[Rfam]
RNA sequence: GGGAGAUGAGGAGUGGUCAUGUCUUGCUUUUGCGAGACGGGUGUCCGCUCCAGCGCCUGGUUACGACAGUUGAGGCACCCCCGUUUGUACCGUCUGAUCCC
Numbered sequence: 001g002g003g004a005g006a007u008g009a010g011g012a013g014u015g016g017u018c019a020u021g022u023c024u025u026g027c028u029u030u031u032g033c034g035a036g037a038c039g040g041g042u043g044u045c046c047g048c049u050c051c052a053g054c055g056c057c058u059g060g061u062u063a064c065g066a067c068a069g070u071u072g073a074g075g076c077a078c079c080c081c082c083g084u085u086u087g088u089a090c091c092g093u094c095u096g097a098u099c100c101c
Base pairs, nucleotide, nucleotide: 001101002100003099004098014092015091016090017089023036024035025034026033027032039080040079041078042077043076044075045074058072059071060070061069